[Rfam]
A member of the RNA family "mir-156 microRNA precursor family" from Solanum tuberosum, 92 nucleotides long.
RNA sequence: GUGACAGAAGAGAGUGAGCACACAUGGUAUUUUCUUACAUUAUAGUAUAUAUGGAUGUUUGAAGCUAUGCGUGCUCACCCUCUAUCUGUCAC
Numbered sequence: 001g002u003g004a005c006a007g008a009a010g011a012g013a014g015u016g017a018g019c020a021c022a023c024a025u026g027g028u029a030u031u032u033u034c035u036u037a038c039a040u041u042a043u044a045g046u047a048u049a050u051a052u053g054g055a056u057g058u059u060u061g062a063a064g065c066u067a068u069g070c071g072u073g074c075u076c077a078c079c080c081u082c083u084a085u086c087u088g089u090c091a092c
Stems, first nucleotide, its partner, number of pairs: 001092008010082003014078008023069005
Description: NCBI's taxonomy places the organism under Eukaryota, Embryophyta, Spermatophyta, lamiids, Solanum. From the family's description: This family represents the plant microRNA (miRNA) precursor mir-156.